[Rfam]
The record is a 93-nucleotide RNA sequence from Oryza sativa, which matches "Small nucleolar RNA R44/J54/Z268 family" in Rfam.

RNA sequence: GGUGCAGGUGAUGAGAAGCAAGACAGGGACAUCAGAUCUCCUUCCGUGGGGAGUGAUCGACUAAAGUCUCAAUGGGAAUCUCUCUGAUGCAUU
Numbered sequence: 001g002g003u004g005c006a007g008g009u010g011a012u013g014a015g016a017a018g019c020a021a022g023a024c025a026g027g028g029a030c031a032u033c034a035g036a037u038c039u040c041c042u043u044c045c046g047u048g049g050g051g052a053g054u055g056a057u058c059g060a061c062u063a064a065a066g067u068c069u070c071a072a073u074g075g076g077a078a079u080c081u082c083u084c085u086g087a088u089g090c091a092u093u
Base pairs, nucleotide, nucleotide: 002092003091004090005089006088
Its family is annotated with RNA processing and nucleolus in the Gene Ontology. Pairs were carried over by alignment from the consensus structure, which was predicted with PFOLD.